The record is a 93-nucleotide RNA from Legionella tucsonensis, which matches "RAGATH-13 RNA" in Rfam. The family's RNA type in Rfam is ribozyme. The organism belongs to Legionella, within Bacteria.
RNA sequence: GUUGAUUUGCCCCCCAUUUCGAGCAUACGGCAUUGCCGGGUUUCAACAUUGAGUGAGCCGCUCGACCAACACUAAACUCAAAACAGGGCAAAU
Numbered sequence: 001g002u003u004g005a006u007u008u009g010c011c012c013c014c015c016a017u018u019u020c021g022a023g024c025a026u027a028c029g030g031c032a033u034u035g036c037c038g039g040g041u042u043u044c045a046a047c048a049u050u051g052a053g054u055g056a057g058c059c060g061c062u063c064g065a066c067c068a069a070c071a072c073u074a075a076a077c078u079c080a081a082a083a084c085a086g087g088g089c090a091a092a093u
Base pairs, nucleotide, nucleotide: 005093006092007091008090009089010088011087012086019065020064021063022062023061024060028038029037030036031035039059040058041057043056044055
Rfam 15.1 lists 49 matches to the family in 31 species.